RNA sequence: CGGCGGCCGCAGGCCGGAUAUACUGCGGUGUGCGGCCCAUGGCCGCAGGAAAGG
Numbered sequence: 001c002g003g004c005g006g007c008c009g010c011a012g013g014c015c016g017g018a019u020a021u022a023c024u025g026c027g028g029u030g031u032g033c034g035g036c037c038c039a040u041g042g043c044c045g046c047a048g049g050a051a052a053g054g
Base pairs, nucleotide, nucleotide: 006029007028008027009026010025011024031047032046033045034044035043036042
RNA: M23 RNA